Description: Shown here is a 96-nucleotide RNA from Triticum turgidum, a member of the family "Small nucleolar RNA R30/Z108". Pairs were carried over by alignment from the consensus structure, which was predicted with PFOLD. It is annotated as a C/D-box small nucleolar RNA. Rfam links the family to the GO terms nucleolus and RNA processing. The source organism's lineage runs through Eukaryota, Embryophyta, Liliopsida, Triticinae and Triticum turgidum. Rfam describes the family as follows. snoR30 is a C/D box small nucleolar RNA which acts as a methylation guide for 18S ribosomal RNA in plants.
[Rfam]
RNA sequence: UGUAGUUGCGAUGAGGAUAAUAAGCUCCCUCUUUUGAAAGCAUUGAUGACAUCGCCGGCAAAAUCGAACCAACUAAAUAUUGCCACAACUCAGCAA
Numbered sequence: 001u002g003u004a005g006u007u008g009c010g011a012u013g014a015g016g017a018u019a020a021u022a023a024g025c026u027c028c029c030u031c032u033u034u035u036g037a038a039a040g041c042a043u044u045g046a047u048g049a050c051a052u053c054g055c056c057g058g059c060a061a062a063a064u065c066g067a068a069c070c071a072a073c074u075a076a077a078u079a080u081u082g083c084c085a086c087a088a089c090u091c092a093g094c095a096a
Stems, first nucleotide, its partner, number of pairs: 006096004